[Rfam]
RNA sequence: AGUCUCACCCUAGAUAAGAAUGGUCACGAGCGGUGGGUGUCCAUGAUUGAUAAAUGUGGCUAAAGUGAGACACAGUAAGUGUUUCCCUCCCAGUAAAUGUACUUCAGCAAUGACAAUUUAGUCUGUAACAUUU
Numbered sequence: 001a002g003u004c005u006c007a008c009c010c011u012a013g014a015u016a017a018g019a020a021u022g023g024u025c026a027c028g029a030g031c032g033g034u035g036g037g038u039g040u041c042c043a044u045g046a047u048u049g050a051u052a053a054a055u056g057u058g059g060c061u062a063a064a065g066u067g068a069g070a071c072a073c074a075g076u077a078a079g080u081g082u083u084u085c086c087c088u089c090c091c092a093g094u095a096a097a098u099g100u101a102c103u104u105c106a107g108c109a110a111u112g113a114c115a116a117u118u119u120a121g122u123c124u125g126u127a128a129c130a131u132u133u
Stems, first nucleotide, its partner, number of pairs: 002060003006056002021043003025039003072126004086112001088110001091107001
About this RNA: The record is a 133-nucleotide RNA sequence from Octodon degus, which matches "Small nucleolar RNA SNORA1" in Rfam. A search with the family's covariance model found it, with a score of 76 bits. The family's RNA type in Rfam is H/ACA-box small nucleolar RNA. About the family: ACA1 is a member of the H/ACA class of snoRNA that guide the sites of modification of uridines to pseudouridines.